[Rfam]
The record is a 105-nucleotide RNA from Apium graveolens, which matches "Small nucleolar RNA Z279/snoR105/snoR108" in Rfam. Rfam's curators write: This family includes the plant snoRNAs known as Z279, snoR105 and snoR108. Taxonomically the source falls in Apium (Eukaryota, Spermatophyta, Mesangiospermae, Apieae). Gene Ontology terms of the family: RNA processing and nucleolus.

RNA sequence: GGAAUAUGAUGAAUGGUCAAAACUUGCACUAUAAUAUGCGAGACGAGUGUUCGCCCAAGCCUGGUUACGACAAUGGGGCACUCUCACUUUUACCAAUCUGAUUCC
Numbered sequence: 001g002g003a004a005u006a007u008g009a010u011g012a013a014u015g016g017u018c019a020a021a022a023c024u025u026g027c028a029c030u031a032u033a034a035u036a037u038g039c040g041a042g043a044c045g046a047g048u049g050u051u052c053g054c055c056c057a058a059g060c061c062u063g064g065u066u067a068c069g070a071c072a073a074u075g076g077g078g079c080a081c082u083c084u085c086a087c088u089u090u091u092a093c094c095a096a097u098c099u100g101a102u103u104c105c
Base pairs, nucleotide, nucleotide: 001105002104003103004102014095015094016093017092023042024041025040026039027038045083046082047081048080049079050078051077062076064074065073
Description: The match comes from Rfam's covariance-model search (84 bits). For this family Rfam cites "Experimental RNomics: identification of 140 candidates for small non-messenger RNAs in the plant Arabidopsis thaliana" (Marker et al., Curr Biol, 2002). The family is grouped with related families in Rfam's "snoU13 clan". Rfam 15.1 lists 906 matches to the family in 223 species. The family's consensus secondary structure was predicted with PFOLD.